The record is a 301-nucleotide RNA from Erysiphe pulchra, which matches "Metazoan signal recognition particle RNA" in Rfam. Pairs were carried over by alignment from the consensus structure, which is taken from published work. The match comes from Rfam's covariance-model search (183 bits).
[Rfam]
RNA sequence: GCUGGAGGCGGUGGCGCGCCUCUGUAAUCCGGCGACUCGGAGGCUAGGAGUUGAGGACGGCCGUGACCGGGGUGUCAUCGGAGACGUCGGGGCCACGUCGAUCGGACGUCCGCGCUGGGCUCGCCAUCAACAUGCGCGCGUGGGAGGAGUCUCGACGCGUGCAGGUUGGCUAAGGCGGGGCGGACCGGGCCAGGGGGGCUGACCCAGCAGCCAAAAGCUCCCGUGGCGAGCGGCAGCGGGACCACGUCUGAGAGUGGGCACGUGUCUGCGACCCGGGGGUCGACGCCGCACCAACUCCUCU
Numbered sequence: 001g002c003u004g005g006a007g008g009c010g011g012u013g014g015c016g017c018g019c020c021u022c023u024g025u026a027a028u029c030c031g032g033c034g035a036c037u038c039g040g041a042g043g044c045u046a047g048g049a050g051u052u053g054a055g056g057a058c059g060g061c062c063g064u065g066a067c068c069g070g071g072g073u074g075u076c077a078u079c080g081g082a083g084a085c086g087u088c089g090g091g092g093c094c095a096c097g098u099c100g101a102u103c104g105g106a107c108g109u110c111c112g113c114g115c116u117g118g119g120c121u122c123g124c125c126a127u128c129a130a131c132a133u134g135c136g137c138g139c140g141u142g143g144g145a146g147g148a149g150u151c152u153c154g155a156c157g158c159g160u161g162c163a164g165g166u167u168g169g170c171u172a173a174g175g176c177g178g179g180g181c182g183g184a185c186c187g188g189g190c191c192a193g194g195g196g197g198g199c200u201g202a203c204c205c206a207g208c209a210g211c212c213a214a215a216a217g218c219u220c221c222c223g224u225g226g227c228g229a230g231c232g233g234c235a236g237c238g239g240g241a242c243c244a245c246g247u248c249u250g251a252g253a254g255u256g257g258g259c260a261c262g263u264g265u266c267u268g269c270g271a272c273c274c275g276g277g278g279g280u281c282g283a284c285g286c287c288g289c290a291c292c293a294a295c296u297c298c299u300c301u
Stems, first nucleotide, its partner, number of pairs: 001044003004023007028041003046299008058288004064279001067276005078271003082267004088262002091259001093257004098252001102251008110240002113238005119231009128168004133163009142153004170174001177221005188212003195205003
About the family: The signal recognition particle (SRP) is a universally conserved ribonucleoprotein. It is involved in the co-translational targeting of proteins to membranes. The eukaryotic SRP consists of a 300-nucleotide 7S RNA and six proteins: SRPs 72, 68, 54, 19, 14, and 9.